A member of the RNA family "S4-Flavobacteria ribosomal protein leader", 33 nucleotides long. The base pairs follow the family's consensus structure, which is taken from published work. The literature on the family includes a 2020 paper in BMC Microbiol by Eckert and Weinberg, "Discovery of 20 novel ribosomal leader candidates in bacteria and archaea".
[Rfam]
RNA sequence: GGUUAUCGAAGGAUUCGACCUGAAUUCAUAACC
Numbered sequence: 001g002g003u004u005a006u007c008g009a010a011g012g013a014u015u016c017g018a019c020c021u022g023a024a025u026u027c028a029u030a031a032c033c
Base pairs, nucleotide, nucleotide: 001033002032003031004030005029006028008027010021011020012019